[Rfam]
RNA sequence: UGCCCCUUGGUGUAAUGGCAGCACAGGAGUCUUUGGAACUUCUAGUGGAGGUUCGAAUCCUCCAGGGGCAA
Numbered sequence: 001u002g003c004c005c006c007u008u009g010g011u012g013u014a015a016u017g018g019c020a021g022c023a024c025a026g027g028a029g030u031c032u033u034u035g036g037a038a039c040u041u042c043u044a045g046u047g048g049a050g051g052u053u054c055g056a057a058u059c060c061u062c063c064a065g066g067g068g069c070a071a
Stems, first nucleotide, its partner, number of pairs: 001070007010024004026042005047063005